Overview
terC RNA: a 53-nucleotide RNA sequence from Magnetospirillum moscoviense.
[Rfam]
RNA sequence: GCGAGGCUCCGGGCCCCUCUGGCGGCAUGCGGUCGCGAUGUCGGAGCGCCUUC
Number, nucleotide and partner (000 for none) at each position: 001g000002c000003g000004a000005g000006g047007c046008u045009c044010c043011g042012g041013g000014c000015c000016c000017c000018u000019c000020u000021g000022g036023c035024g034025g033026c032027a000028u000029g000030c000031g000032g026033u025034c024035g023036c022037g000038a000039u000040g000041u012042c011043g010044g009045a008046g007047c006048g000049c000050c000051u000052u000053c000
The family has 129 seed sequences and 1,112 matches in Rfam 15.1. The organism belongs to Magnetospirillum, within Bacteria.